[Rfam]
A member of the RNA family "Small nucleolar RNA R21" from Populus deltoides, 77 nucleotides long. The family has 6 seed sequences and 472 matches in Rfam 15.1. Gene Ontology terms of the family: nucleolus and RNA processing.
RNA sequence: CAUUGCAUGAUGAGCGAUUUGAAAUUUAAAAGUAGUGGACUGAUAUCUGUCAAUGAAGAAAAUAAUUCUGAGAGAUG
Numbered sequence: 001c002a003u004u005g006c007a008u009g010a011u012g013a014g015c016g017a018u019u020u021g022a023a024a025u026u027u028a029a030a031a032g033u034a035g036u037g038g039a040c041u042g043a044u045a046u047c048u049g050u051c052a053a054u055g056a057a058g059a060a061a062a063u064a065a066u067u068c069u070g071a072g073a074g075a076u077g
Base pairs, nucleotide, nucleotide: 001077002076003075004074006072